RNA: mir-239 microRNA precursor family
Organism: Caenorhabditis remanei
RNA sequence: CAAUUUUUGUACUGCACAAAAGCUCUGACUGCUCUGAUAUGGCUCAGCACUUUUGUCUGUGCAAAAAUGGC
Numbered sequence: 001c002a003a004u005u006u007u008u009g010u011a012c013u014g015c016a017c018a019a020a021a022g023c024u025c026u027g028a029c030u031g032c033u034c035u036g037a038u039a040u041g042g043c044u045c046a047g048c049a050c051u052u053u054u055g056u057c058u059g060u061g062c063a064a065a066a067a068u069g070g071c
Stems, first nucleotide, its partner, number of pairs: 003068010016056007025047003029042002